[Rfam]
RNA: Iron response element II
Organism: Trichogramma brassicae
RNA sequence: GAAAUAUCUGAAGCAGAGCUUUCAAUAUUUC
Number, nucleotide and partner (000 for none) at each position: 001g031002a030003a029004a028005u027006a026007u025008c000009u024010g023011a022012a021013g020014c018015a000016g000017a000018g014019c000020u013021u012022u011023c010024a009025a007026u006027a005028u004029u003030u002031c001